[Rfam]
RNA sequence: AUACAUUCACAUAGUCCAUAACAGAAGAAUUCAUGUUGCAGCCCUUGUCAGAUUCUGAGGAAUCUGUGAAUUCUACU
Numbered sequence: 001a002u003a004c005a006u007u008c009a010c011a012u013a014g015u016c017c018a019u020a021a022c023a024g025a026a027g028a029a030u031u032c033a034u035g036u037u038g039c040a041g042c043c044c045u046u047g048u049c050a051g052a053u054u055c056u057g058a059g060g061a062a063u064c065u066g067u068g069a070a071u072u073c074u075a076c077u
Base pairs, nucleotide, nucleotide: 013045014044016041020077023074024073025072026071027039029037049066050065051064052063053062054061055060
Rfam assigns this 77-nucleotide sequence from Crocodylus porosus to the family "Mammalian CPEB3 ribozyme". The match comes from Rfam's covariance-model search (55 bits). The family's consensus secondary structure is taken from published work.